[Rfam]
RNA sequence: GUGCCAGCCCGGGCCCCUCUGGCAGUUCCUCGAGCGCCGCGUGUGCUCAGGGUCUGCGAUGUCGGACUGGAUUU
Numbered sequence: 001g002u003g004c005c006a007g008c009c010c011g012g013g014c015c016c017c018u019c020u021g022g023c024a025g026u027u028c029c030u031c032g033a034g035c036g037c038c039g040c041g042u043g044u045g046c047u048c049a050g051g052g053u054c055u056g057c058g059a060u061g062u063c064g065g066a067c068u069g070g071a072u073u074u
Stems, first nucleotide, its partner, number of pairs: 006068002009065004022057004027052003
About this RNA:
The family of this 74-nucleotide RNA sequence is "terC RNA". By type it is a cis-regulatory element.